[Rfam]
RNA: Mammalian CPEB3 ribozyme
RNA sequence: GGUGGCAAGUUUGAGGCCACGGCAGAUGCGCUCAUGGUGCAGCCUGUCAGAUUCCAAUGAAUCUGCAAAUUCUACU
Numbered sequence: 001g002g003u004g005g006c007a008a009g010u011u012u013g014a015g016g017c018c019a020c021g022g023c024a025g026a027u028g029c030g031c032u033c034a035u036g037g038u039g040c041a042g043c044c045u046g047u048c049a050g051a052u053u054c055c056a057a058u059g060a061a062u063c064u065g066c067a068a069a070u071u072c073u074a075c076u
Stems, first nucleotide, its partner, number of pairs: 015044003021076002024073003028040003048065007